[Rfam]
RNA sequence: UUGUUUGCGGGUGUAGCAUCAUCAAGAUUCACAUGCAAAUGCAACCGCCCAAGUUGUUUGGAAACUGAGAAUCUUGAUGAUGCUGCAUCGGCAAUAAA
Number, nucleotide and partner (000 for none) at each position: 001u000002u000003g000004u000005u000006u000007g000008c000009g000010g089011g088012u087013g086014u085015a084016g083017c082018a081019u080020c079021a078022u077023c076024a075025a074026g073027a072028u071029u070030c069031a000032c067033a066034u000035g000036c000037a000038a000039a000040u000041g000042c000043a000044a000045c000046c000047g000048c000049c000050c000051a000052a000053g000054u000055u000056g000057u000058u000059u000060g000061g000062a000063a000064a000065c000066u033067g032068a000069g030070a029071a028072u027073c026074u025075u024076g023077a022078u021079g020080a019081u018082g017083c016084u015085g014086c013087a012088u011089c010090g000091g000092c000093a000094a000095u000096a000097a000098a000

This 98-nucleotide RNA from Morus notabilis belongs to the Rfam family "mir-172 microRNA precursor family". NCBI's taxonomy places the organism under Eukaryota, Gunneridae, rosids, fabids, Morus. Rfam 15.1 lists 2,076 matches to the family in 219 species. mir-172 has been experimentally verified in Arabidopsis thaliana. This family is thought to target mRNAs coding for APETALA2-like transcription factors. The mature sequence is excised from the 3' arm of the hairpin. For this family Rfam cites "Computational Identification of Plant MicroRNAs and Their Targets, Including a Stress-Induced miRNA" (Jones-Rhoades and Bartel, Mol Cell, 2004). The family's consensus secondary structure was predicted with PFOLD.